[Rfam]
Shown here is a 119-nucleotide sequence from Sinorhizobium saheli, a member of the family "Alphaproteobacterial ar14".
The organism belongs to Sinorhizobium, within Bacteria.
Rfam classes the family as a small RNA.
About the family: Smr14C2 was renamed NfeR1 (Nodule Formation Efficiency RNA) highly expressed in salt stress and during the symbiotic interaction on legume roots.
On this family, see del Val et al., RNA Biol 2012: "A survey of sRNA families in alpha-proteobacteria".

RNA sequence: AGGUAGGGAAGCGAUUCACCUCCUCCCGAACGCUUCGGUUCGACGGGCAGCAUUCUUCUUCCCAAGCUGUCGGUCACUUAUUGAGCCCGGCGCACUUCCUCCCGCGCCGGAUUUUUUUU
Numbered sequence: 001a002g003g004u005a006g007g008g009a010a011g012c013g014a015u016u017c018a019c020c021u022c023c024u025c026c027c028g029a030a031c032g033c034u035u036c037g038g039u040u041c042g043a044c045g046g047g048c049a050g051c052a053u054u055c056u057u058c059u060u061c062c063c064a065a066g067c068u069g070u071c072g073g074u075c076a077c078u079u080a081u082u083g084a085g086c087c088c089g090g091c092g093c094a095c096u097u098c099c100u101c102c103c104g105c106g107c108c109g110g111a112u113u114u115u116u117u118u119u
Base pairs, nucleotide, nucleotide: 008036009035011033012032013031016030042075043074044073046071047070048069049068050067051066083114084113085112087110088109089108090107091106092105093104